[Rfam]
RNA sequence: CGAAAACAAUGAAUAUUACCUCAUAUAAUCUUGGAAGUAUGGUCCAUAAGUUUCUACCUAGCAGCCAUAAAAUGCUAGACUAUGGGGAGAAAAUGCAGAAGG
Numbered sequence: 001c002g003a004a005a006a007c008a009a010u011g012a013a014u015a016u017u018a019c020c021u022c023a024u025a026u027a028a029u030c031u032u033g034g035a036a037g038u039a040u041g042g043u044c045c046a047u048a049a050g051u052u053u054c055u056a057c058c059u060a061g062c063a064g065c066c067a068u069a070a071a072a073u074g075c076u077a078g079a080c081u082a083u084g085g086g087g088a089g090a091a092a093a094u095g096c097a098g099a100a101g102g
Stems, first nucleotide, its partner, number of pairs: 019087007029049001032046004058078006
Purine riboswitch aptamer: a 102-nucleotide RNA sequence from Bacillus manliponensis. Pairs were carried over by alignment from the consensus structure, which is taken from published work. NCBI's taxonomy places the organism under Bacteria, Bacilli, Caryophanales, Bacillaceae, Bacillus. Gene Ontology term of the family: purine nucleobase biosynthetic process. It scores 78 bits against the family's covariance model.